[Rfam]
RNA: Small nucleolar RNA SNORD16
RNA sequence: UGCAGUGAUGGUGUAAUUUGCGUCCUACACUGUGAUCAGUGACGUUAUGCCUGAUGUCAUAUACUGGCACAAGUGGCUGACGAACCUUGAGUCUGAGCA
Numbered sequence: 001u002g003c004a005g006u007g008a009u010g011g012u013g014u015a016a017u018u019u020g021c022g023u024c025c026u027a028c029a030c031u032g033u034g035a036u037c038a039g040u041g042a043c044g045u046u047a048u049g050c051c052u053g054a055u056g057u058c059a060u061a062u063a064c065u066g067g068c069a070c071a072a073g074u075g076g077c078u079g080a081c082g083a084a085c086c087u088u089g090a091g092u093c094u095g096a097g098c099a
Stems, first nucleotide, its partner, number of pairs: 001099003021082004031071004039064002041058005